[Rfam]
RNA: Group II catalytic intron D1-D4-2
RNA sequence: GAAGGUUGGCCCUUCGGAGCCGCCCUGCGGAGGGUGGUUCCAAACCACCUCAUGCUGCGUUGGUUGACGACCGUCGUGGUGAGCGAUGAGGAAAAGGCGUCGUUUGAGGCGUCAGGU
Numbered sequence: 001g002a003a004g005g006u007u008g009g010c011c012c013u014u015c016g017g018a019g020c021c022g023c024c025c026u027g028c029g030g031a032g033g034g035u036g037g038u039u040c041c042a043a044a045c046c047a048c049c050u051c052a053u054g055c056u057g058c059g060u061u062g063g064u065u066g067a068c069g070a071c072c073g074u075c076g077u078g079g080u081g082a083g084c085g086a087u088g089a090g091g092a093a094a095a096g097g098c099g100u101c102g103u104u105u106g107a108g109g110c111g112u113c114a115g116g117u
Stems, first nucleotide, its partner, number of pairs: 001015005016041006023034004046116001048091006054080002057077003061073004096113006